[Rfam]
Nucleotides: 138
Base pairs, nucleotide, nucleotide: 002133003132004131005130006129007128012122013121014120015119017118018117019116020115026072027071028070
Number, partner (000 for none) and nucleotide at each position: 001000g002133u003132g004131c005130u006129g007128g008000c009000u010000u011000u012122g013121u014120c015119g016000a017118g018117u019116g020115g021000g022000u023000a024000c025000u026072u027071c028070g029000c030000a031000u032000u033000u034000g035000c036000a037000a038000c039000c040000u041000a042000u043000u044000c045000a046000a047000a048000u049000u050000g051000g052000a053000u054000u055000g056000a057000a058000u059000g060000g061000u062000c063000g064000c065000g066000g067000g068000u069000u070028c071027g072026a073000c074000c075000c076000c077000g078000g079000c080000g081000u082000a083000c084000g085000g086000c087000c088000g089000g090000g091000a092000c093000u094000c095000g096000a097000a098000c099000u100000c101000g102000u103000a104000g105000c106000u107000a108000u109000c110000u111000a112000u113000a114000c115020c116019c117018a118017c119015u120014g121013a122012c123000g124000c125000c126000a127000u128007c129006c130005a131004g132003c133002a134000c135000u136000u137000u138000u
Shown here is a 138-nucleotide RNA sequence from Branchiostoma floridae, a member of the family "Vault RNA". A search with the family's covariance model found it, with a score of 42 bits. By type it is a non-coding RNA gene. This family of RNAs are found as part of the enigmatic vault ribonucleoprotein complex. The complex consists of a major vault protein (MVP), two minor vault proteins (VPARP and TEP1), and several small untranslated RNA molecules. It has been suggested that the vault complex is involved in drug resistance.